A member of the RNA family "General Flavivirus exoribonuclease-resistant RNA element" from Orthoflavivirus japonicum, 68 nucleotides long.
The exoribonuclease-resistant RNA elements (xrRNA) are described throughout all groups of flaviviruses. Usually, each virus harbors two xrRNAs, xrRNA1 and xrRNA2, in the beginning of the 3' UTR. The formation of these stem-loops, especially xrRNA1, is vital to ensure resistance against XRN1 activity.
RNA sequence: CCGUGUCAGGCCACGUAAGUGCCACUUCGCUGAGGAGUGCAGCCUGUACAGCCCCGGGAGGACCGGGU
Numbered sequence: 001c002c003g004u005g006u007c008a009g010g011c012c013a014c015g016u017a018a019g020u021g022c023c024a025c026u027u028c029g030c031u032g033a034g035g036a037g038u039g040c041a042g043c044c045u046g047u048a049c050a051g052c053c054c055c056g057g058g059a060g061g062a063c064c065g066g067g068u
Base pairs, nucleotide, nucleotide: 005049006048007046008045009044010043011042012021013020014019025037026036027035053067054066055065056064057063
The sequence is in the family's curated seed alignment. For this family Rfam cites "A folded viral noncoding RNA blocks host cell exoribonucleases through a conformationally dynamic RNA structure" (Steckelberg et al., Proc Natl Acad Sci U S A, 2018).